Description: A member of the RNA family "Mammalian CPEB3 ribozyme" from Crocodylus porosus, 80 nucleotides long. Rfam's curators write: The mammalian CPEB3 ribozyme is a self cleaving RNA located in the second intron of the CPEB3 gene which belongs to a family of genes regulating messenger RNA polyadenylation. Gene Ontology term of the family: RNA nuclease activity. The source organism's lineage runs through Eukaryota, Deuterostomia, Gnathostomata, Longirostres and Crocodylus.
[Rfam]
RNA sequence: AGAGUUCACAUGUUCAAGGCCACAACAGAAGUGCUCACAGCAUGGCCUUGUUAGAUUGCAACAAAUCUGCAAAUUCUGCU
Numbered sequence: 001a002g003a004g005u006u007c008a009c010a011u012g013u014u015c016a017a018g019g020c021c022a023c024a025a026c027a028g029a030a031g032u033g034c035u036c037a038c039a040g041c042a043u044g045g046c047c048u049u050g051u052u053a054g055a056u057u058g059c060a061a062c063a064a065a066u067c068u069g070c071a072a073a074u075u076c077u078g079c080u
Base pairs, nucleotide, nucleotide: 017048018047019046020045021044024080026078027077028076029075030074031043032042033041052069053068054067055066056065057064